[Rfam]
RNA sequence: GGCCGCCCCGCAGCAGUUCUUCAGUGGCAUGCUUUACGUCCUGUGCCAGCUAAAGCUGCCAGUUGAAGAACUGUUGACCGUGGC
Numbered sequence: 001g002g003c004c005g006c007c008c009c010g011c012a013g014c015a016g017u018u019c020u021u022c023a024g025u026g027g028c029a030u031g032c033u034u035u036a037c038g039u040c041c042u043g044u045g046c047c048a049g050c051u052a053a054a055g056c057u058g059c060c061a062g063u064u065g066a067a068g069a070a071c072u073g074u075u076g077a078c079c080g081u082g083g084c
Stems, first nucleotide, its partner, number of pairs: 005081002011076002017070006026060003031056006